[Rfam]
RNA sequence: GACGGGGCACGAAAGGCCCCGUGAAGAACGAAUCGGGUGCAAGCCCGUAGUAGAAUUCACGGGGAGCCGGUGUUCCGUCGUGCGUUUUGAAAAACGA
Dot-bracket structure: ((((((((((....((..(((((((...(....(((((....))))).....)..)))))))....)).))))))))))...(((........))).